Shown here is a 65-nucleotide RNA sequence from Denticeps clupeoides, a member of the family "mir-375 microRNA precursor family". A search with the family's covariance model found it, with a score of 56 bits. Lineage of the source: Eukaryota > Euteleostomi > Actinopteri > Otomorpha > Denticeps. Pairs were carried over by alignment from the consensus structure, which was predicted with RNAalifold.

RNA sequence: CCUGACGCCGAGUCACGUGCACAAUACUGACCCUUAACGUUUUGUUCGUUCGGCUUGCGUUAAGC
Dot-bracket structure: (.(.(((.((((((...((.((((.((...........)).)))).))...))))))))).).).